Shown here is a 68-nucleotide sequence from Lottia gigantea, a member of the family "bZIP non canonical Hac1/Xbp1 intron". Pairs were carried over by alignment from the consensus structure, which was predicted with RNAfold. Rfam classes the family as a small RNA. The family has 112 seed sequences and 1,325 matches in Rfam 15.1. For this family Rfam cites "Conserved RNA structures in the non-canonical Hac1/Xbp1 intron" (Hooks and Griffiths-Jones, RNA Biol, 2011). bZIP intron RNA is a non-canonical intron that was first reported in HAC1 gene in yeast and XBP1 gene in Metazoa.
[Rfam]
RNA sequence: UGGAGACGAAAUCCCACAGAUCUGCAGCAUCUGCUGUUCCUCUGCCGAAGGAGCAGAUUUCGACUCCA
Dot-bracket structure: (((((.(((((.....(((((.......)))))...(((((.......)))))....))))).)))))